[Rfam]
RNA sequence: UAAUUUAUCUAGAAGCAAAUAGCUGUCUAGUUGUGACAAAUAUUUAUCUAACUACUCAGAAUUAAUUGUUAUAACAAGCUCGACUACAUCAUGAAAAGAUCAAAUUGACCCUAUAAUUAGUUAAAUGGUUUGGUUUGAGA
Number, nucleotide and partner (000 for none) at each position: 001u000002a000003a000004u138005u137006u000007a135008u133009c132010u000011a000012g129013a000014a000015g000016c127017a126018a000019a000020u123021a122022g000023c000024u000025g000026u000027c000028u119029a118030g117031u116032u115033g114034u113035g112036a000037c000038a000039a000040a000041u000042a000043u000044u000045u000046a000047u000048c000049u000050a000051a000052c000053u000054a000055c000056u000057c000058a000059g000060a000061a000062u000063u000064a000065a000066u000067u000068g000069u000070u000071a000072u000073a000074a000075c000076a000077a000078g000079c000080u000081c000082g000083a000084c000085u000086a000087c000088a000089u000090c000091a000092u000093g000094a000095a000096a000097a000098g000099a000100u000101c000102a000103a000104a000105u000106u000107g000108a000109c000110c000111c000112u035113a034114u033115a032116a031117u030118u029119a028120g000121u000122u021123a020124a000125a000126u017127g016128g000129u012130u000131u000132g009133g008134u000135u007136u000137g005138a004139g000140a000